The record is a 47-nucleotide RNA sequence, which matches "eL15-Euryarchaeota ribosomal protein leader" in Rfam. The family's consensus secondary structure is taken from published work. Rfam's curators put it in the seed alignment.
[Rfam]
RNA sequence: UGGGGGCCCCCCAUUGGAUGUGGCCCAUUUGGAGGCUGAACAAAUCA
Dot-bracket structure: (((((...)))))(((.....((((........))))...)))....